mir-3473 microRNA precursor family: a 109-nucleotide RNA from Rattus norvegicus. Lineage of the source: Eukaryota > Eumetazoa > Euteleostomi > Dipnotetrapodomorpha > Rattus. The family's consensus secondary structure was predicted with RNAalifold.

[Rfam]
RNA sequence: ACCACUGAGCCAUCUCUCCAGCCCUAUUUUAACAUUUUUAUCUUAAAAUAUUUCUGCAUUAAAAUAGACAUUGCGGGGGGGGGGGGGGCUGGAGAGAUGGCUCAGUGGU
Numbered sequence: 001a002c003c004a005c006u007g008a009g010c011c012a013u014c015u016c017u018c019c020a021g022c023c024c025u026a027u028u029u030u031a032a033c034a035u036u037u038u039u040a041u042c043u044u045a046a047a048a049u050a051u052u053u054c055u056g057c058a059u060u061a062a063a064a065u066a067g068a069c070a071u072u073g074c075g076g077g078g079g080g081g082g083g084g085g086g087g088g089c090u091g092g093a094g095a096g097a098u099g100g101c102u103c104a105g106u107g108g109u
Base pairs, nucleotide, nucleotide: 002108003107004106005105006104007103008102009101010100011099012098013097014096015095016094017093018092019091020090021089022088023087024086